[Rfam]
Rfam assigns this 140-nucleotide RNA from Photobacterium halotolerans to the family "Histidine operon leader". For this family Rfam cites "Attenuation in amino acid biosynthetic operons" (Kolter and Yanofsky, Annu Rev Genet, 1982). Rfam's curators write: At least 6 amino acid operons are known to be regulated by attenuation. In each a leader sequence of 150-200 bp is found upstream of the first gene in the operon. This leader sequence can assume two different secondary structures known as the terminator and the anti-terminator structure. In each case the leader also codes for very short peptide sequence that is rich in the end product amino acid of the operon.
RNA sequence: ACACCACCAUCAUCAUCCUGAUUAGUCUUUCAGGAGGAUACGCCUCACUCUGGAAGACGACAAAUCGCCUCUUCCAGCGGUCGCUACAUAUAAGCAGCAUUCAGACCCCCGGAAGAGUAAUCUUCCGGGGGUUUUUCGUU
Numbered sequence: 001a002c003a004c005c006a007c008c009a010u011c012a013u014c015a016u017c018c019u020g021a022u023u024a025g026u027c028u029u030u031c032a033g034g035a036g037g038a039u040a041c042g043c044c045u046c047a048c049u050c051u052g053g054a055a056g057a058c059g060a061c062a063a064a065u066c067g068c069c070u071c072u073u074c075c076a077g078c079g080g081u082c083g084c085u086a087c088a089u090a091u092a093a094g095c096a097g098c099a100u101u102c103a104g105a106c107c108c109c110c111g112g113a114a115g116a117g118u119a120a121u122c123u124u125c126c127g128g129g130g131g132u133u134u135u136u137c138g139u140u
Stems, first nucleotide, its partner, number of pairs: 010047001012039003017034005050077008103134013